[Rfam]
RNA: Burkholderia RNA 7 (anti-hemB)
RNA sequence: CCUCCCGCUUUUCCUCCCUGAGCGGGGCCUUGAUGCGUUUACGCGGAAGGGCUUCCCACCCUCGGCCCAUGGCCGGGGGUUUUUUUU
Numbered sequence: 001c002c003u004c005c006c007g008c009u010u011u012u013c014c015u016c017c018c019u020g021a022g023c024g025g026g027g028c029c030u031u032g033a034u035g036c037g038u039u040u041a042c043g044c045g046g047a048a049g050g051g052c053u054u055c056c057c058a059c060c061c062u063c064g065g066c067c068c069a070u071g072g073c074c075g076g077g078g079g080u081u082u083u084u085u086u087u
Stems, first nucleotide, its partner, number of pairs: 004026006028050004034045003059079008